[Rfam]
RNA: PyrR binding site
RNA sequence: AGAACCUUUAAUUCAGUCCCGUGAGGCUGGCAAGGUAACGUGAAUGAGGAUUUUGGGAAACCUAUGACUAUUGCUGCGGCAAUGCAUACCCUGGAUCCGCAUGACAGUCAUGGCUUAACUAUGACUAGAGACUCCUUGCCUCGAUCAGGCAAGGAGUUUUUUUGU
Dot-bracket structure: ...(((((....((((((......)))))).))))).......(((.((((((.(((...............................))).)))))).)))........................((((((((((((((.......))))))))))))))....
Numbered sequence: 001a002g003a004a005c006c007u008u009u010a011a012u013u014c015a016g017u018c019c020c021g022u023g024a025g026g027c028u029g030g031c032a033a034g035g036u037a038a039c040g041u042g043a044a045u046g047a048g049g050a051u052u053u054u055g056g057g058a059a060a061c062c063u064a065u066g067a068c069u070a071u072u073g074c075u076g077c078g079g080c081a082a083u084g085c086a087u088a089c090c091c092u093g094g095a096u097c098c099g100c101a102u103g104a105c106a107g108u109c110a111u112g113g114c115u116u117a118a119c120u121a122u123g124a125c126u127a128g129a130g131a132c133u134c135c136u137u138g139c140c141u142c143g144a145u146c147a148g149g150c151a152a153g154g155a156g157u158u159u160u161u162u163u164g165u
Stems, first nucleotide, its partner, number of pairs: 004036005013030006044102003048098006055091003127161014